[Rfam]
RNA sequence: UUGCACAGUGAACACCCAAAUGAGCUCCAUAGUUUCUUUGGCAUAAUUCUGUGCAAGAAUAAACUGUACUUUACCUCUGCAUUGAAAGGACUAUUUUUCCUUUUACAUGUAUUCAAAAGGACAGUACAAAA
Numbered sequence: 001u002u003g004c005a006c007a008g009u010g011a012a013c014a015c016c017c018a019a020a021u022g023a024g025c026u027c028c029a030u031a032g033u034u035u036c037u038u039u040g041g042c043a044u045a046a047u048u049c050u051g052u053g054c055a056a057g058a059a060u061a062a063a064c065u066g067u068a069c070u071u072u073a074c075c076u077c078u079g080c081a082u083u084g085a086a087a088g089g090a091c092u093a094u095u096u097u098u099c100c101u102u103u104u105a106c107a108u109g110u111a112u113u114c115a116a117a118a119g120g121a122c123a124g125u126a127c128a129a130a131a
Stems, first nucleotide, its partner, number of pairs: 003054006010048001014044001016041005022035001024033003056070002059067003076117001078115002080109003084104007
Shown here is a 131-nucleotide sequence from Laticauda laticaudata, a member of the family "Small nucleolar RNA SNORA22".
The family's consensus secondary structure was predicted with RNAfold.
It scores 112 bits against the family's covariance model.
Gene Ontology terms of the family: RNA processing and nucleolus.